[Rfam]
RNA sequence: AUAUAAGAUGCAUUAACUAUACCUUUAUAUUUUUUAUAGUCGUAAUCCGAUUAUAUCAUCGUGUCUUUUUAUAUGCAAUAUAAAAGAACCUGAAAGCUAUUCAGGUUCUUUUUUGU
Number, nucleotide and partner (000 for none) at each position: 001a000002u000003a000004u000005a000006a000007g000008a000009u000010g000011c000012a000013u000014u000015a000016a000017c000018u000019a000020u000021a000022c000023c000024u000025u000026u000027a000028u000029a000030u000031u000032u000033u000034u000035u071036a070037u000038a064039g000040u000041c061042g060043u000044a000045a000046u000047c000048c000049g000050a000051u000052u000053a000054u000055a000056u000057c000058a000059u000060c042061g041062u000063g000064u038065c000066u000067u000068u000069u000070u036071a035072u000073a000074u000075g000076c000077a000078a000079u000080a000081u000082a112083a111084a110085a109086g108087a107088a106089c105090c104091u103092g102093a101094a000095a000096g000097c000098u000099a000100u000101u093102c092103a091104g090105g089106u088107u087108c086109u085110u084111u083112u082113u000114u000115g000116u000
The record is a 116-nucleotide RNA from Paenibacillus sp. FSL H7-0737, which matches "Bacillus sRNA ncr1015" in Rfam. NCBI's taxonomy places the organism under Bacteria, Bacilli, Caryophanales, Paenibacillaceae, Paenibacillus. A reference for the family is Irnov et al. (2010), "Identification of regulatory RNAs in Bacillus subtilis", Nucleic Acids Res. Pairs were carried over by alignment from the consensus structure, which is taken from published work. The family's RNA type in Rfam is small RNA.